[Rfam]
RNA sequence: UCUGGAUCAGUGAUGUGAAUGUUUUUACUGCGUUAUCUAUCUGAAAUCCAGUUGAGGAUAGACUUGCUUCCUGAGAUCCAGU
Numbered sequence: 001u002c003u004g005g006a007u008c009a010g011u012g013a014u015g016u017g018a019a020u021g022u023u024u025u026u027a028c029u030g031c032g033u034u035a036u037c038u039a040u041c042u043g044a045a046a047u048c049c050a051g052u053u054g055a056g057g058a059u060a061g062a063c064u065u066g067c068u069u070c071c072u073g074a075g076a077u078c079c080a081g082u
Stems, first nucleotide, its partner, number of pairs: 002081006
Shown here is an 82-nucleotide RNA from Coffea canephora, a member of the family "Small nucleolar RNA snoR27". The family's RNA type in Rfam is C/D-box small nucleolar RNA. The family's consensus secondary structure was predicted with WAR. The organism belongs to Coffea, within Eukaryota. The family is grouped with related families in Rfam's "snR68 clan". Rfam links the family to the GO terms RNA processing and nucleolus.